[Rfam]
RNA: FuFi-1 RNA
Nucleotides: 159
Stems, first nucleotide, its partner, number of pairs: 001048007020037005027121001029119003050102006062082002065079004069144007083092003126156006133149005
Number, partner (000 for none) and nucleotide at each position: 001048c002047c003046c004045g005044c006043c007042a008000g009000c010000g011000a012000a013000u014000g015000g016000c017000a018000u019000c020037u021036g022035c023034g024033g025000a026000a027121c028000c029119a030118g031117a032000a033024c034023c035022g036021c037020g038000a039000a040000a041000g042007u043006g044005g045004c046003g047002g048001g049000a050102g051101c052100g053099c054098u055097u056000g057000a058000a059000g060000a061000a062082g063081c064000u065079c066078g067077c068076a069144g070143u071142g072141u073140u074139g075138u076068u077067g078066u079065g080000c081063g082062c083092g084091g085090u086000g087000a088000a089000a090085a091084c092083c093000u094000g095000c096000a097055a098054a099053g100052c101051g102050c103000a104000a105000a106000g107000g108000g109000u110000a111000a112000a113000c114000a115000a116000a117031u118030c119029u120000u121027g122000g123000c124000a125000u126156a127155g128154g129153c130152c131151g132000a133149c134148g135147g136146g137145a138075a139074c140073a141072a142071c143070a144069c145137u146136c147135c148134c149133g150000c151131c152130g153129g154128u155127u156126u157000u158000u159000g